RNA sequence: GGCUGAUCUGAAGGUGGUGAGUUAUUUCAAGUGAUUGUUCACAGUCAGUUACAGAUUGAACUCCUUGUUCUACUCUCUCCUCUUGUCUUACUACUGCACUUGACUAGUCAUAA
Numbered sequence: 001g002g003c004u005g006a007u008c009u010g011a012a013g014g015u016g017g018u019g020a021g022u023u024a025u026u027u028c029a030a031g032u033g034a035u036u037g038u039u040c041a042c043a044g045u046c047a048g049u050u051a052c053a054g055a056u057u058g059a060a061c062u063c064c065u066u067g068u069u070c071u072a073c074u075c076u077c078u079c080c081u082c083u084u085g086u087c088u089u090a091c092u093a094c095u096g097c098a099c100u101u102g103a104c105u106a107g108u109c110a111u112a113a
Base pairs, nucleotide, nucleotide: 001109002108003107004106005105007103008102010101011100014097015096016092017091018090019089020088021087044074047071048070

Rfam assigns this 113-nucleotide RNA from Pan troglodytes to the family "Y RNA". It scores 58 bits against the family's covariance model. Y RNAs are components of the Ro ribonucleoprotein particle (Ro RNP), in association with Ro60 and La proteins. The Y RNAs and Ro60 and La proteins are well conserved, but the function of the Ro RNP is not known. In humans the RNA component can be one of four small RNAs -- hY1, hY3, hY4 and hY5. These small RNAs are predicted to fold into a conserved secondary structure containing three stem structures. The largest of the four, hY1, contains an additional hairpin. This family includes a significant number of annotated pseudogenes and the model is expected to discriminate poorly between real and Y RNA related pseudogenes. It is annotated as a non-coding RNA gene. Lineage of the source: Eukaryota > Gnathostomata > Teleostomi > Primates > Pan.